[Rfam]
RNA sequence: CCUGACAAAGGCAAACCGUUCGAGAGGGCGGGGCGCAAAACCACGGGUCCGUGAGUCGGUUUGAUGUAAUCAGUUUUGCAUCAGGCUUGGCUUCAGGAAAGCCGGGUUGCCUGGA
Numbered sequence: 001c002c003u004g005a006c007a008a009a010g011g012c013a014a015a016c017c018g019u020u021c022g023a024g025a026g027g028g029c030g031g032g033g034c035g036c037a038a039a040a041c042c043a044c045g046g047g048u049c050c051g052u053g054a055g056u057c058g059g060u061u062u063g064a065u066g067u068a069a070u071c072a073g074u075u076u077u078g079c080a081u082c083a084g085g086c087u088u089g090g091c092u093u094c095a096g097g098a099a100a101g102c103c104g105g106g107u108u109g110c111c112u113g114g115a
Base pairs, nucleotide, nucleotide: 004111011036012035016031017030018029019028020027021026034101039108040107041106042105044104045103046102048098049097
A member of the RNA family "c-di-GMP-I-GGC riboswitch aptamer" from Neorhodopirellula pilleata, 115 nucleotides long. A search with the family's covariance model found it, with a score of 62 bits.